[Rfam]
RNA sequence: AAAUUCAGGUAAUUGCUGCAGUGCUAGACACUGGAGAGGAAAGUCCAUGCUCACACGGUACUGAGAUGUCCGUAGUGUUCGUGCCCGGCCAAAAAAUAAGCCGGGGCGCUGUUUACUCAGCUGACGGCGGAAAUAAUUCCUAAGUCCUUUUAGGAUAUGGAAGACGUUUCCUGAAAAGUGCCACAGUGACGGAGCUGUAUCGGAAACGGUACAGGUGGAACGAGGUAAACCCCGCGAGUGAGAAACCCAAAUUAUGGUAGGGGCGCUCUUCCGAAGGAAAUGAACGGAGGAAGGGACAGACAAUCGUCUGUAGAUAGAUGAUUACCACCCUGAGUACGAGGUGUAAACCGUUUGAGUACAAGGGAACAAAACAUGGCUUACGAA
Numbered sequence: 001a002a003a004u005u006c007a008g009g010u011a012a013u014u015g016c017u018g019c020a021g022u023g024c025u026a027g028a029c030a031c032u033g034g035a036g037a038g039g040a041a042a043g044u045c046c047a048u049g050c051u052c053a054c055a056c057g058g059u060a061c062u063g064a065g066a067u068g069u070c071c072g073u074a075g076u077g078u079u080c081g082u083g084c085c086c087g088g089c090c091a092a093a094a095a096a097u098a099a100g101c102c103g104g105g106g107c108g109c110u111g112u113u114u115a116c117u118c119a120g121c122u123g124a125c126g127g128c129g130g131a132a133a134u135a136a137u138u139c140c141u142a143a144g145u146c147c148u149u150u151u152a153g154g155a156u157a158u159g160g161a162a163g164a165c166g167u168u169u170c171c172u173g174a175a176a177a178g179u180g181c182c183a184c185a186g187u188g189a190c191g192g193a194g195c196u197g198u199a200u201c202g203g204a205a206a207c208g209g210u211a212c213a214g215g216u217g218g219a220a221c222g223a224g225g226u227a228a229a230c231c232c233c234g235c236g237a238g239u240g241a242g243a244a245a246c247c248c249a250a251a252u253u254a255u256g257g258u259a260g261g262g263g264c265g266c267u268c269u270u271c272c273g274a275a276g277g278a279a280a281u282g283a284a285c286g287g288a289g290g291a292a293g294g295g296a297c298a299g300a301c302a303a304u305c306g307u308c309u310g311u312a313g314a315u316a317g318a319u320g321a322u323u324a325c326c327a328c329c330c331u332g333a334g335u336a337c338g339a340g341g342u343g344u345a346a347a348c349c350g351u352u353u354g355a356g357u358a359c360a361a362g363g364g365a366a367c368a369a370a371a372c373a374u375g376g377c378u379u380a381c382g383a384a
Stems, first nucleotide, its partner, number of pairs: 004384003008326007016036002019033003041379003045376005050242005055073004060069002079237005084105006106125001107123001108121004126232002129171004137162004144156003178230002180226003195214008246262003266295007296311006329364003334359004
RNA: Bacterial RNase P class B